[Rfam]
RNA sequence: GUUGGCAGCAUCACCCUUCCUCCGGUCAGAGCCACCAACUCAGAACCGGAACCGUAUUAAAACCCGACCUCACCAGUCGGGUUUUUUAC
Numbered sequence: 001g002u003u004g005g006c007a008g009c010a011u012c013a014c015c016c017u018u019c020c021u022c023c024g025g026u027c028a029g030a031g032c033c034a035c036c037a038a039c040u041c042a043g044a045a046c047c048g049g050a051a052c053c054g055u056a057u058u059a060a061a062a063c064c065c066g067a068c069c070u071c072a073c074c075a076g077u078c079g080g081g082u083u084u085u086u087u088a089c
Stems, first nucleotide, its partner, number of pairs: 021050006029041003059085010